[Rfam]
RNA: Eukaryotic large subunit ribosomal RNA, nucleotides 2848 to 3404
RNA sequence: GAAGACCCUGUUGAGCUUGACUCUAGUCUGGCAAUGUAAGGAGACAUGAGAGGUGUAGCAUAAGUGGGAGACUUUGUCGCCGGUGAAAUACCACUACUUUCAUCGUUUCUUUACUUACUCGGUGAGGCGGAACGCGUGCGCCGUCCGCUUUGGCGGCGGCUGUCACGGUGUUCUCGAGCCAAGCGCGUUAGAGUGGCGUGAGGCCGCGGACCGCCUUCACGGGCGAUCCGCGCGUCGAUCGCCGAUACAUGCUCCCGCGUGAUCCGAUUCGAGGACACUGCCAGGCGGGGAGUUUGACUGGGGCGGUACAUCUGUCAAAGAAUAACGCAGGUGUCCUAAGGCCAGCUCAGCGAGGACAGAAACCUCGCGUAGAGCAAAAGGGCAAAAGCUGGCUUGAUCCCGAUGUUCAGUACGCAUAGGGACUGCGAAAGCACGGCCUAUCGAUCCUUUUGGCUUGAAGAGUUUUCAGCAAGAGGUGUCAGAAAAGUUACCACAGGGAUAACUGGCUUGUGGCGGCCAAGCGUUCAUAGCGACGUCGCUUUUUGAUCCUUCGAUGU
Numbered sequence: 001g002a003a004g005a006c007c008c009u010g011u012u013g014a015g016c017u018u019g020a021c022u023c024u025a026g027u028c029u030g031g032c033a034a035u036g037u038a039a040g041g042a043g044a045c046a047u048g049a050g051a052g053g054u055g056u057a058g059c060a061u062a063a064g065u066g067g068g069a070g071a072c073u074u075u076g077u078c079g080c081c082g083g084u085g086a087a088a089u090a091c092c093a094c095u096a097c098u099u100u101c102a103u104c105g106u107u108u109c110u111u112u113a114c115u116u117a118c119u120c121g122g123u124g125a126g127g128c129g130g131a132a133c134g135c136g137u138g139c140g141c142c143g144u145c146c147g148c149u150u151u152g153g154c155g156g157c158g159g160c161u162g163u164c165a166c167g168g169u170g171u172u173c174u175c176g177a178g179c180c181a182a183g184c185g186c187g188u189u190a191g192a193g194u195g196g197c198g199u200g201a202g203g204c205c206g207c208g209g210a211c212c213g214c215c216u217u218c219a220c221g222g223g224c225g226a227u228c229c230g231c232g233c234g235u236c237g238a239u240c241g242c243c244g245a246u247a248c249a250u251g252c253u254c255c256c257g258c259g260u261g262a263u264c265c266g267a268u269u270c271g272a273g274g275a276c277a278c279u280g281c282c283a284g285g286c287g288g289g290g291a292g293u294u295u296g297a298c299u300g301g302g303g304c305g306g307u308a309c310a311u312c313u314g315u316c317a318a319a320g321a322a323u324a325a326c327g328c329a330g331g332u333g334u335c336c337u338a339a340g341g342c343c344a345g346c347u348c349a350g351c352g353a354g355g356a357c358a359g360a361a362a363c364c365u366c367g368c369g370u371a372g373a374g375c376a377a378a379a380g381g382g383c384a385a386a387a388g389c390u391g392g393c394u395u396g397a398u399c400c401c402g403a404u405g406u407u408c409a410g411u412a413c414g415c416a417u418a419g420g421g422a423c424u425g426c427g428a429a430a431g432c433a434c435g436g437c438c439u440a441u442c443g444a445u446c447c448u449u450u451u452g453g454c455u456u457g458a459a460g461a462g463u464u465u466u467c468a469g470c471a472a473g474a475g476g477u478g479u480c481a482g483a484a485a486a487g488u489u490a491c492c493a494c495a496g497g498g499a500u501a502a503c504u505g506g507c508u509u510g511u512g513g514c515g516g517c518c519a520a521g522c523g524u525u526c527a528u529a530g531c532g533a534c535g536u537c538g539c540u541u542u543u544u545g546a547u548c549c550u551u552c553g554a555u556g557u
Stems, first nucleotide, its partner, number of pairs: 007497004012493002014489005020293004027285007036114010046103007063095005070078002118273005128266004136166003183260005296309001297307003310332006335436002341393006347373002350368006374383002398422004403417004424433003447475006455469004506547001508545001510544001512540006521531002